[Rfam]
RNA sequence: CCCUCUGGCUGAGUUAGUGAUCGGCUAGAGAUUCAUACUAUAUAUUUGGAGAGACACAUGUCACUAAGUACUGAAGCGAAAGCAAAAAUCCUGGCUGAAUUUGGCCGCGGCGAA
Dot-bracket structure: ......((((((........))))))..................(((((.(..........).)))))..............................................

The family of this 114-nucleotide RNA from Shewanella sp. W3-18-1 is "Ribosomal S15 leader". The organism belongs to Shewanella, within Bacteria. The sequence is in the family's curated seed alignment. Rfam's curators write: The E. coli Ribosomal S15 gene 5' UTR can form two alternative structures. One that is a series of three hairpins, The other includes a pseudoknot. This structure causes translational regulation of the S15 protein. The alignment of this family contains only the final two hairpins which are conserved in other species, and also includes the complete region that forms the alternate structures. By type it is a cis-regulatory leader.